[Rfam]
RNA sequence: CCCCCCGUUUGAUGUUCUGUUUUGUCUUCUGUUGUAGGAAACGGUUCGCCAAAACCGUCGGUUGCUUCGAACACACCCAAUCUACCACAGAAUUUCAAAGCGGAACUGAUAACGGGUUUUUCG
Numbered sequence: 001c002c003c004c005c006c007g008u009u010u011g012a013u014g015u016u017c018u019g020u021u022u023u024g025u026c027u028u029c030u031g032u033u034g035u036a037g038g039a040a041a042c043g044g045u046u047c048g049c050c051a052a053a054a055c056c057g058u059c060g061g062u063u064g065c066u067u068c069g070a071a072c073a074c075a076c077c078c079a080a081u082c083u084a085c086c087a088c089a090g091a092a093u094u095u096c097a098a099a100g101c102g103g104a105a106c107u108g109a110u111a112a113c114g115g116g117u118u119u120u121u122c123g
Base pairs, nucleotide, nucleotide: 004116005115006114007113008112009111014106015105016104017103018102019101020100021099024094025091026090027089031088032087034085035084036083037082042057043056044055045054046053058080060078061077063075064074
RNA: MtlS RNA
Organism: Photobacterium ganghwense